[Rfam]
RNA sequence: AAGUUGAAUGUGAGAAUUGGAGGAAAAUGAACCUAUUUGCCUUAUUUUUCUUUUCUAUACCAGAUUCAAUUUUCUCCAAUAUCUCAUGUUCAACCU
Numbered sequence: 001a002a003g004u005u006g007a008a009u010g011u012g013a014g015a016a017u018u019g020g021a022g023g024a025a026a027a028u029g030a031a032c033c034u035a036u037u038u039g040c041c042u043u044a045u046u047u048u049u050c051u052u053u054u055c056u057a058u059a060c061c062a063g064a065u066u067c068a069a070u071u072u073u074c075u076c077c078a079a080u081a082u083c084u085c086a087u088g089u090u091c092a093a094c095c096u
Base pairs, nucleotide, nucleotide: 004093005092006091007090008089011086012085013084014083016080017079018078019077020076021075023073024072025071026070028068029067030066033063